[Rfam]
RNA sequence: GUCAGCACCCCGCACUAAAGUGACGGGGCUUCGCGCCCCCAAGUUUUAGUUAGCUGACCCGCCUAAGUACCCGGAGUACUACGUUAUUAGUAAGUGUUAAAGUCCCACCUACGGAUGCAAUCAGGCCAGUCUGUAGCUCUGGAAUUAGAUGGUUAAACAGGUUUACGAGGGGUAAGCCAGUGCUGUCUAAAAAGUACCGACUAAUAACCUUGGCAAGGCUCACAUUAC
Numbered sequence: 001g002u003c004a005g006c007a008c009c010c011c012g013c014a015c016u017a018a019a020g021u022g023a024c025g026g027g028g029c030u031u032c033g034c035g036c037c038c039c040c041a042a043g044u045u046u047u048a049g050u051u052a053g054c055u056g057a058c059c060c061g062c063c064u065a066a067g068u069a070c071c072c073g074g075a076g077u078a079c080u081a082c083g084u085u086a087u088u089a090g091u092a093a094g095u096g097u098u099a100a101a102g103u104c105c106c107a108c109c110u111a112c113g114g115a116u117g118c119a120a121u122c123a124g125g126c127c128a129g130u131c132u133g134u135a136g137c138u139c140u141g142g143a144a145u146u147a148g149a150u151g152g153u154u155a156a157a158c159a160g161g162u163u164u165a166c167g168a169g170g171g172g173u174a175a176g177c178c179a180g181u182g183c184u185g186u187c188u189a190a191a192a193a194g195u196a197c198c199g200a201c202u203a204a205u206a207a208c209c210u211u212g213g214c215a216a217g218g219c220u221c222a223c224a225u226u227a228c
Stems, first nucleotide, its partner, number of pairs: 001058006007051001009028002011025002014021002029043003061214003065210001066080005083208009103143002109136008126218002145190009157181002160178007
Source information:
This 228-nucleotide sequence from Scytonema hofmannii belongs to the Rfam family "HNH endonuclease-associated RNA and ORF (HEARO) RNA". On this family, see Weinberg et al., Nature 2009: "Exceptional structured noncoding RNAs revealed by bacterial metagenome analysis". NCBI's taxonomy places the organism under Bacteria, Bacillati, Cyanobacteriota, Scytonema, Scytonema hofmannii. Rfam 15.1 lists 952 matches to the family in 249 species. The match comes from Rfam's covariance-model search (140 bits).